[Rfam]
Shown here is a 92-nucleotide RNA from Caloramator fervidus, a member of the family "Selenocysteine transfer RNA". The family's consensus secondary structure is taken from published work. A reference for the family is Mizutani and Goto (2000), "Eukaryotic selenocysteine tRNA has the 9/4 secondary structure", FEBS Lett. The match comes from Rfam's covariance-model search (73 bits). Lineage of the source: Bacteria > Bacillati > Eubacteriales > Clostridiaceae > Caloramator.

RNA sequence: GGGAGUGGAUAGGUGCUGGUGUGCCUACCGGUCUUCAAAACCGUGUUGACGGGUUAACCCCCGUUAGGUGGGUUCGAUUCCCACACACUCCC
Numbered sequence: 001g002g003g004a005g006u007g008g009a010u011a012g013g014u015g016c017u018g019g020u021g022u023g024c025c026u027a028c029c030g031g032u033c034u035u036c037a038a039a040a041c042c043g044u045g046u047u048g049a050c051g052g053g054u055u056a057a058c059c060c061c062c063g064u065u066a067g068g069u070g071g072g073u074u075c076g077a078u079u080c081c082c083a084c085a086c087a088c089u090c091c092c
Base pairs, nucleotide, nucleotide: 001092002091003090004089005088006087007086008084011026012025013024014023015022016021029043030042031041032040047066048065049064050063051062069083070082071081072080